The record is a 101-nucleotide RNA from Aedes aegypti, which matches "mir-12 microRNA precursor family" in Rfam. It is one of the family's seed sequences. The base pairs follow the family's consensus structure, which was predicted with RNAalifold. Its family is annotated with miRNA-mediated post-transcriptional gene silencing and RISC complex in the Gene Ontology.

RNA sequence: UCGGACUGAGUAUUACAUCAGGUACUGGUGUCGAUAUUCGAAUCACCAACGAAUCGGGUUCCUUUGAUUAACUUACCAGUACUUAUGUUAUGCUCUCUCCG
Numbered sequence: 001u002c003g004g005a006c007u008g009a010g011u012a013u014u015a016c017a018u019c020a021g022g023u024a025c026u027g028g029u030g031u032c033g034a035u036a037u038u039c040g041a042a043u044c045a046c047c048a049a050c051g052a053a054u055c056g057g058g059u060u061c062c063u064u065u066g067a068u069u070a071a072c073u074u075a076c077c078a079g080u081a082c083u084u085a086u087g088u089u090a091u092g093c094u095c096u097c098u099c100c101g
Base pairs, nucleotide, nucleotide: 002101003100004099005098009094010093011092012091015088016087017086018085021083022082023081024080025079026078027077028076029075